The family of this 86-nucleotide RNA sequence from Sapajus apella is "mir-515 microRNA precursor family". The family has 181 seed sequences and 1,056 matches in Rfam 15.1. It scores 73 bits against the family's covariance model. The family's consensus secondary structure was predicted with RNAalifold. The organism belongs to Sapajus, within Eukaryota.
RNA sequence: UCUCAUGCGGUACUUCUCCAAGGGGAGGCAUUUUUGUUGCGUGAAAUAAAACAAAAUGCUUCCUUUUAGAGAGUUACUGUUUGAGA
Numbered sequence: 001u002c003u004c005a006u007g008c009g010g011u012a013c014u015u016c017u018c019c020a021a022g023g024g025g026a027g028g029c030a031u032u033u034u035u036g037u038u039g040c041g042u043g044a045a046a047u048a049a050a051a052c053a054a055a056a057u058g059c060u061u062c063c064u065u066u067u068a069g070a071g072a073g074u075u076a077c078u079g080u081u082u083g084a085g086a
Base pairs, nucleotide, nucleotide: 001086002085003084004083005082007080008079009078010077011076012075014073016071017070018069020067021066022065023064024063025062026061027060028059029058030057031056032055033054034053037051038050